A member of the RNA family "Histone 3' UTR stem-loop" from Fopius arisanus, 46 nucleotides long. By type it is a cis-regulatory element. Pairs were carried over by alignment from the consensus structure, which is taken from published work.
[Rfam]
RNA sequence: UAAUCGGCCCUUUUCAGGGCCACAAAUUAAAUUCAACGUAUGAAAU
Numbered sequence: 001u002a003a004u005c006g007g008c009c010c011u012u013u014u015c016a017g018g019g020c021c022a023c024a025a026a027u028u029a030a031a032u033u034c035a036a037c038g039u040a041u042g043a044a045a046u
Stems, first nucleotide, its partner, number of pairs: 006021006